[Rfam]
RNA sequence: CGUUGCUCAUUCACCUCGCUAUGAUUGCGCUGUUGAUGACGUCGCUUUGCGCUCAUAACACUCCGAAUGACGCCACAAGAAAGGGUGCCUAUCGUCCACUACACCGAUAACAGUCUGCUAUGCAGCUUUAUCAAACAUCGGGCGACACGUUGAGUGAGGCACCACCUA
Numbered sequence: 001c002g003u004u005g006c007u008c009a010u011u012c013a014c015c016u017c018g019c020u021a022u023g024a025u026u027g028c029g030c031u032g033u034u035g036a037u038g039a040c041g042u043c044g045c046u047u048u049g050c051g052c053u054c055a056u057a058a059c060a061c062u063c064c065g066a067a068u069g070a071c072g073c074c075a076c077a078a079g080a081a082a083g084g085g086u087g088c089c090u091a092u093c094g095u096c097c098a099c100u101a102c103a104c105c106g107a108u109a110a111c112a113g114u115c116u117g118c119u120a121u122g123c124a125g126c127u128u129u130a131u132c133a134a135a136c137a138u139c140g141g142g143c144g145a146c147a148c149g150u151u152g153a154g155u156g157a158g159g160c161a162c163c164a165c166c167u168a
Stems, first nucleotide, its partner, number of pairs: 005073002007070006020057005084163007093144005106132005146156003